[Rfam]
RNA sequence: CGACCGUCACAACGGCUUCCUGGCGUGGCGGCGUAGAUUCAAUGGAGCA
Numbered sequence: 001c002g003a004c005c006g007u008c009a010c011a012a013c014g015g016c017u018u019c020c021u022g023g024c025g026u027g028g029c030g031g032c033g034u035a036g037a038u039u040c041a042a043u044g045g046a047g048c049a
Stems, first nucleotide, its partner, number of pairs: 004031007013022002015048003019045002
Dot-bracket structure: ...(((((((..(([[[.[[))..)))))))............]]]]].

The record is a 49-nucleotide RNA sequence from Paracoccus lutimaris, which matches "SAM/SAH riboswitch aptamer" in Rfam. The family's consensus secondary structure is taken from published work. It scores 59 bits against the family's covariance model. NCBI's taxonomy places the organism under Bacteria, Pseudomonadati, Pseudomonadota, Alphaproteobacteria, Paracoccus.